[Rfam]
RNA sequence: UUUGAGGGGAAUGUUGUCUGGUGCGAGGCCGCCAUCUCGGAUCACCGAUCUUCGUCUCGCAAGAUCGGUUAUUUAUGUGCUUUUGUUGUUGUGGGUCGGGAUCGCCGCGUACCCAUUUGAGAUGAUGACGUGAUUCGAUCGAUCGGAUCAUGAGCUUGACGACCUCGGACCAGGCUUCAUUCCCCCCAAA
Numbered sequence: 001u002u003u004g005a006g007g008g009g010a011a012u013g014u015u016g017u018c019u020g021g022u023g024c025g026a027g028g029c030c031g032c033c034a035u036c037u038c039g040g041a042u043c044a045c046c047g048a049u050c051u052u053c054g055u056c057u058c059g060c061a062a063g064a065u066c067g068g069u070u071a072u073u074u075a076u077g078u079g080c081u082u083u084u085g086u087u088g089u090u091g092u093g094g095g096u097c098g099g100g101a102u103c104g105c106c107g108c109g110u111a112c113c114c115a116u117u118u119g120a121g122a123u124g125a126u127g128a129c130g131u132g133a134u135u136c137g138a139u140c141g142a143u144c145g146g147a148u149c150a151u152g153a154g155c156u157u158g159a160c161g162a163c164c165u166c167g168g169a170c171c172a173g174g175c176u177u178c179a180u181u182c183c184c185c186c187c188a189a190a
Stems, first nucleotide, its partner, number of pairs: 001190004006185008016175006024167005
RNA: mir-166 microRNA precursor family